[Rfam]
RNA sequence: ACACUGGUUUGGCUCAGUGGAUACUUCGAACAACAAUUCUUCUCAAGAAUUUAAUGCUCUCAUCCCUCCGCGGGAUCGAACCACGGGCGCUGUCCAGUGUUUUU
Numbered sequence: 001a002c003a004c005u006g007g008u009u010u011g012g013c014u015c016a017g018u019g020g021a022u023a024c025u026u027c028g029a030a031c032a033a034c035a036a037u038u039c040u041u042c043u044c045a046a047g048a049a050u051u052u053a054a055u056g057c058u059c060u061c062a063u064c065c066c067u068c069c070g071c072g073g074g075a076u077c078g079a080a081c082c083a084c085g086g087g088c089g090c091u092g093u094c095c096a097g098u099g100u101u102u103u104u
Stems, first nucleotide, its partner, number of pairs: 002099006012088004017084004025080005
The family of this 104-nucleotide RNA sequence from Mola mola is "Vault RNA". It is annotated as a non-coding RNA gene. The source organism's lineage runs through Eukaryota, Opisthokonta, Chordata, Gnathostomata and Mola. This family of RNAs are found as part of the enigmatic vault ribonucleoprotein complex. The complex consists of a major vault protein (MVP), two minor vault proteins (VPARP and TEP1), and several small untranslated RNA molecules. It has been suggested that the vault complex is involved in drug resistance.